[Rfam]
RNA: Bacterial large subunit ribosomal RNA, nucleotides 1316 to 1693
Organism: Fannyhessea vaginae
RNA sequence: GAGAGAGAUGUGAAAAACAUCUCCGCCGUAAACCCAAGGUUUCCUGGGCAAGGCUAAUCCUCCCAGGGUCAGUCGGGAGCUAAGGCAAGGCCGGAAGGCGUAGUCGAUGCACAGCAGGUAGAUAUUCCUGCACCUCCGACGCAACAUUAUUACCAAUGGGGUGACGAAGAAGGGUAGCUCAGCGGGGUUCUGGAUGUCCCCGUGAGAUCACGUAGGCUACAAGGUAGUGAAAUGCGCCUUGUAUUAAAGCUGAGGUGAAGGACGAAACGAUUGAGCGAAGUGAGUGAGCCCAUACUUCCGAGAAAAACCUCUAGGGAGUUGCUAGGAGCCCGUACCGCAAACCGACACAGGUGGGUGGGUAGAACAUACCAAGGCGAU
Numbered sequence: 001g002a003g004a005g006a007g008a009u010g011u012g013a014a015a016a017a018c019a020u021c022u023c024c025g026c027c028g029u030a031a032a033c034c035c036a037a038g039g040u041u042u043c044c045u046g047g048g049c050a051a052g053g054c055u056a057a058u059c060c061u062c063c064c065a066g067g068g069u070c071a072g073u074c075g076g077g078a079g080c081u082a083a084g085g086c087a088a089g090g091c092c093g094g095a096a097g098g099c100g101u102a103g104u105c106g107a108u109g110c111a112c113a114g115c116a117g118g119u120a121g122a123u124a125u126u127c128c129u130g131c132a133c134c135u136c137c138g139a140c141g142c143a144a145c146a147u148u149a150u151u152a153c154c155a156a157u158g159g160g161g162u163g164a165c166g167a168a169g170a171a172g173g174g175u176a177g178c179u180c181a182g183c184g185g186g187g188u189u190c191u192g193g194a195u196g197u198c199c200c201c202g203u204g205a206g207a208u209c210a211c212g213u214a215g216g217c218u219a220c221a222a223g224g225u226a227g228u229g230a231a232a233u234g235c236g237c238c239u240u241g242u243a244u245u246a247a248a249g250c251u252g253a254g255g256u257g258a259a260g261g262a263c264g265a266a267a268c269g270a271u272u273g274a275g276c277g278a279a280g281u282g283a284g285u286g287a288g289c290c291c292a293u294a295c296u297u298c299c300g301a302g303a304a305a306a307a308c309c310u311c312u313a314g315g316g317a318g319u320u321g322c323u324a325g326g327a328g329c330c331c332g333u334a335c336c337g338c339a340a341a342c343c344g345a346c347a348c349a350g351g352u353g354g355g356u357g358g359g360u361a362g363a364a365c366a367u368a369c370c371a372a373g374g375c376g377a378u
Base pairs, nucleotide, nucleotide: 005023006022007021008020009019010018024376025375026374027373032356033355034354035353038336039335043067044066045065046064047063048062052060053059074332075331076330077329079110080109084105085104086103088101090099091098092097114131115130116129117128118127134328135327136326137325139323141322142321143320144319153316154315158311159310160309161308162307166298167297168296169295172291173290174289177285178284179283180282181281182203183202184201185200186199187198204263208258209257210256211255215251216250217249219242220241221240222239223238224237225236227235228234268277269276342351343350358370359369360368361367